[Rfam]
RNA sequence: GGCGGAGGGAAGCUCAUCGGUGGGGCCACGAGCUGAGUGCCGCGCGUCACUCUACCCCAUGUCCCUUGGGAAGGUCUGAGAUAAGGGCCAUUAUAGCGGCCCUAGCAGGGCCCUCCCUGAACUUCGGGGAGGUGAGUUCCCAGAGAACGGGGCUCCUCGCGAGGGCAGACUGGGCAGGAGAUGCCGAAGCUCCUGCCCUCGGGCGGGGACUCGGCGGAUGCCUCCUUAGCCGGAGCUUGGAAAAGACUCACGGCCAGCGAAUUGAGUUCAAUGGCUGAGGUGAGGCACCCUUCGGGGGCCUCAUAACCCAAUUCAGACUACUCUCCCCCGUC
Numbered sequence: 001g002g003c004g005g006a007g008g009g010a011a012g013c014u015c016a017u018c019g020g021u022g023g024g025g026c027c028a029c030g031a032g033c034u035g036a037g038u039g040c041c042g043c044g045c046g047u048c049a050c051u052c053u054a055c056c057c058c059a060u061g062u063c064c065c066u067u068g069g070g071a072a073g074g075u076c077u078g079a080g081a082u083a084a085g086g087g088c089c090a091u092u093a094u095a096g097c098g099g100c101c102c103u104a105g106c107a108g109g110g111c112c113c114u115c116c117c118u119g120a121a122c123u124u125c126g127g128g129g130a131g132g133u134g135a136g137u138u139c140c141c142a143g144a145g146a147a148c149g150g151g152g153c154u155c156c157u158c159g160c161g162a163g164g165g166c167a168g169a170c171u172g173g174g175c176a177g178g179a180g181a182u183g184c185c186g187a188a189g190c191u192c193c194u195g196c197c198c199u200c201g202g203g204c205g206g207g208g209a210c211u212c213g214g215c216g217g218a219u220g221c222c223u224c225c226u227u228a229g230c231c232g233g234a235g236c237u238u239g240g241a242a243a244a245g246a247c248u249c250a251c252g253g254c255c256a257g258c259g260a261a262u263u264g265a266g267u268u269c270a271a272u273g274g275c276u277g278a279g280g281u282g283a284g285g286c287a288c289c290c291u292u293c294g295g296g297g298g299c300c301u302c303a304u305a306a307c308c309c310a311a312u313u314c315a316g317a318c319u320a321c322u323c324u325c326c327c328c329c330g331u332c
Stems, first nucleotide, its partner, number of pairs: 001332004008326003013279004018274001022066004035052005040046001076316005086255004098112005113131006132251007152236005280304007
Dot-bracket structure: ((((...(((..[[[[.[...((((.........((((((.....).)))))..........)))).........(((((.....((((........(((((.....)))))((((((.......))))))(((((((.............(((((...........................................................................)))))........)))))))))))..................].]]]](((((((...........))))))).......))))).......)))..))))